RNA sequence: GUGACGGCAACGCGAGAUGCGACACGGACGGGAGCGGGGGAACCAGGUAAGUCGCCCUGGCCCCGCUUUGCAUGCUCGCGGGACGGCCAGGGCUUGGGGUGAAGCCGCCCUCCGGCGGCCGGGCCACCUGACGGCCCGAAUCCGACAGCUCACCUCGCAGGCGUCGUCGAGGAACAAC
Dot-bracket structure: .................................((((((....(((((...........................................)))))(((.....((((......))))..((((.........))))...))).........))))))....................